[Rfam]
RNA: MIR812 microRNA precursor family
RNA sequence: GGUUUUCGUGUUCAACGUUUGACUGUCUAUCUUAUAUGAAAAUUUUUUUAUUAGUAUUUUUAUUAUUGUUAGAUGAUAAAACAUGAAUAAUACUUUAUGCAUGACUUAUCUUUUUAAUUUUUUUCAUAAUUUUUUUAAAUAAAAUGAACGGUCAAAUGUUAGACACGGAAACU
Numbered sequence: 001g002g003u004u005u006u007c008g009u010g011u012u013c014a015a016c017g018u019u020u021g022a023c024u025g026u027c028u029a030u031c032u033u034a035u036a037u038g039a040a041a042a043u044u045u046u047u048u049u050a051u052u053a054g055u056a057u058u059u060u061u062a063u064u065a066u067u068g069u070u071a072g073a074u075g076a077u078a079a080a081a082c083a084u085g086a087a088u089a090a091u092a093c094u095u096u097a098u099g100c101a102u103g104a105c106u107u108a109u110c111u112u113u114u115u116a117a118u119u120u121u122u123u124u125c126a127u128a129a130u131u132u133u134u135u136u137a138a139a140u141a142a143a144a145u146g147a148a149c150g151g152u153c154a155a156a157u158g159u160u161a162g163a164c165a166c167g168g169a170a171a172c173u
Stems, first nucleotide, its partner, number of pairs: 011163002014160003018156009028146003032142004